[Rfam]
RNA: Bacterial RNase P class A
RNA sequence: UGAGUAGGCGGGACGGUCGCCUGUGGCUGGGGCGUUCUUAGGACGUGCCGAGCUGCGGGAGGAAAGUCCGGGCUCCGCAGGGCAGGGUGGUCGGUAACGCCGACCGGCCGUGAGGCUAGGGCCAGUGCAACAGAAAGCAAACCGCCGAACGGCAGGCUUGGCCAAGCGUCAAGCGUGUGCGUGGUAAGGGUGAAACGGUGCGGUAAGAGCGCACCAGCGGUCGAGGCGACUCGAUCGGCUAGGUAAACCCCACCCGGCGCCAGACCAAACAGGAAGCAUCGGAGACUUCGGUUUCCGGCGAGGCGGCCCGCCUCGGUAUGACUUUCGGGUAGGUCGCUUGAGGCGGCGAGCAAUCGUCGUCCCAGAUAAAUGACCGUCCUCCGCUCGGCCGCUUAACCGCGGCCCGGCGGGGACAGAACCCGGCUUACAAGCCUACUCACACC
Numbered sequence: 001u002g003a004g005u006a007g008g009c010g011g012g013a014c015g016g017u018c019g020c021c022u023g024u025g026g027c028u029g030g031g032g033c034g035u036u037c038u039u040a041g042g043a044c045g046u047g048c049c050g051a052g053c054u055g056c057g058g059g060a061g062g063a064a065a066g067u068c069c070g071g072g073c074u075c076c077g078c079a080g081g082g083c084a085g086g087g088u089g090g091u092c093g094g095u096a097a098c099g100c101c102g103a104c105c106g107g108c109c110g111u112g113a114g115g116c117u118a119g120g121g122c123c124a125g126u127g128c129a130a131c132a133g134a135a136a137g138c139a140a141a142c143c144g145c146c147g148a149a150c151g152g153c154a155g156g157c158u159u160g161g162c163c164a165a166g167c168g169u170c171a172a173g174c175g176u177g178u179g180c181g182u183g184g185u186a187a188g189g190g191u192g193a194a195a196c197g198g199u200g201c202g203g204u205a206a207g208a209g210c211g212c213a214c215c216a217g218c219g220g221u222c223g224a225g226g227c228g229a230c231u232c233g234a235u236c237g238g239c240u241a242g243g244u245a246a247a248c249c250c251c252a253c254c255c256g257g258c259g260c261c262a263g264a265c266c267a268a269a270c271a272g273g274a275a276g277c278a279u280c281g282g283a284g285a286c287u288u289c290g291g292u293u294u295c296c297g298g299c300g301a302g303g304c305g306g307c308c309c310g311c312c313u314c315g316g317u318a319u320g321a322c323u324u325u326c327g328g329g330u331a332g333g334u335c336g337c338u339u340g341a342g343g344c345g346g347c348g349a350g351c352a353a354u355c356g357u358c359g360u361c362c363c364a365g366a367u368a369a370a371u372g373a374c375c376g377u378c379c380u381c382c383g384c385u386c387g388g389c390c391g392c393u394u395a396a397c398c399g400c401g402g403c404c405c406g407g408c409g410g411g412g413a414c415a416g417a418a419c420c421c422g423g424c425u426u427a428c429a430a431g432c433c434u435a436c437u438c439a440c441a442c443c
Stems, first nucleotide, its partner, number of pairs: 001439009011428001012378007020059009064426003068423005073259001075257002080309004085255005090104005105119001106117004120250002125248002127244002142189002144185004150179002197215006217239001218237008263335004273326003276322001300314005342361008